About this RNA
ZMP/ZTP riboswitch aptamer (pfl RNA motif): an 86-nucleotide RNA from Streptomyces sp. NP160. Pairs were carried over by alignment from the consensus structure, which is taken from published work. The organism belongs to Streptomyces, within Bacteria.

RNA sequence: UGGCGGCGUCGCGACUGGCGAAGGUGGGUCACCACCGGGGAGCGGCGGGAGAGCAGUCGAUCGGGUCGUCCGCCUGGGCCCGUUCG
Numbered sequence: 001u002g003g004c005g006g007c008g009u010c011g012c013g014a015c016u017g018g019c020g021a022a023g024g025u026g027g028g029u030c031a032c033c034a035c036c037g038g039g040g041a042g043c044g045g046c047g048g049g050a051g052a053g054c055a056g057u058c059g060a061u062c063g064g065g066u067c068g069u070c071c072g073c074c075u076g077g078g079c080c081c082g083u084u085c086g
Stems, first nucleotide, its partner, number of pairs: 007047006015039002017074004024035004063081005